[Rfam]
RNA sequence: UACGGAUAGACGAAAGCCCUUCAUAUAAGCGCAAGAAUAUGGCUUGCGCGUCUCUACCGGGCCGCCGUAAACGGCCCGACUAUGAAGGCAGAAGACGCUGCU
Numbered sequence: 001u002a003c004g005g006a007u008a009g010a011c012g013a014a015a016g017c018c019c020u021u022c023a024u025a026u027a028a029g030c031g032c033a034a035g036a037a038u039a040u041g042g043c044u045u046g047c048g049c050g051u052c053u054c055u056a057c058c059g060g061g062c063c064g065c066c067g068u069a070a071a072c073g074g075c076c077c078g079a080c081u082a083u084g085a086a087g088g089c090a091g092a093a094g095a096c097g098c099u100g101c102u
Base pairs, nucleotide, nucleotide: 018088019087020086021085022084023083024082025081029049030048031047032046033045034044035043058078059077060076061075062074063073064072

Record summary
Purine riboswitch aptamer: a 102-nucleotide RNA sequence from Geobacillus kaustophilus. Rfam 15.1 lists 4,097 matches to the family in 1,411 species. The family's consensus secondary structure is taken from published work. The source organism's lineage runs through Bacteria, Bacillota, Anoxybacillaceae, Geobacillus and Geobacillus kaustophilus. The sequence is in the family's curated seed alignment.